Shown here is a 361-nucleotide part of an RNA from Candidatus Kentrum sp. G, a member of the family "Bacterial large subunit ribosomal RNA". A search with the family's covariance model found it, with a score of 2845 bits.
RNA sequence: UGAGAGAACUCUGGUGAAGGAACUAGGCAAAAUAGCACCGUAACUUCGGGAGAAGGUGUGCCUCCAGUACGUGAUGAGACUUGCUCUCGGAGCGGAAGGGGGUUGCAGUGACCAGGUGGCUGCGACUGUUUACUAAAAACACAGCACUCUGCAAACUCGUAAGAGGAAGUAUAGGGUGUGACGCCUGCCCGGUGCCGGAAGGUUAAUUGAUGGGGUUAGCUUCGGCGAAGCUCUUGAUCGAAGCCCCGGUAAACGGCGGCCGUAACUAUAACGGUCCUAAGGUAGCGAAAUUCCUUGUCGGGUAAGUUCCGACCCGCACGAAUGGCGUAACGAUGGCCACGCUGUCUCCACCAGAGACUCA
Dot-bracket structure: ((((....((((((((.(((..............(((((....(....).....)))))((((((................(((((...)))))...))))))(...).......(((((((((..(((.........)))..(((((((((...(((....)))...)..))))))))..((((.(((..(((((((..(((........(((((..((....))...)))))........))))))))..)))))((((((.......))))))(...).....(.........((((((.....))))))).........))))...)).)))))))....))).)))))))).))))
Pairs were carried over by alignment from the consensus structure, which is taken from published work.